[Rfam]
RNA sequence: GAAGUCAUCACAGUGGUUGUGAUGUGAGGGUUGUGUUACAUAUCACAGCCAGCUUUGAUGAGCUUUC
Numbered sequence: 001g002a003a004g005u006c007a008u009c010a011c012a013g014u015g016g017u018u019g020u021g022a023u024g025u026g027a028g029g030g031u032u033g034u035g036u037u038a039c040a041u042a043u044c045a046c047a048g049c050c051a052g053c054u055u056u057g058a059u060g061a062g063c064u065u066u067c
Base pairs, nucleotide, nucleotide: 005061006060007059008058009057010056012054013053014051015050016049017048018047019046020045021044022043025042026041
About this RNA:
The record is a 67-nucleotide RNA sequence from Dreissena polymorpha, which matches "mir-2 microRNA precursor family" in Rfam. Taxonomically the source falls in Dreissena (Eukaryota, Metazoa, Bivalvia, Neoheterodontei). A reference for the family is Lee and Ambros (2001), "An extensive class of small RNAs in Caenorhabditis elegans", Science. A search with the family's covariance model found it, with a score of 55 bits.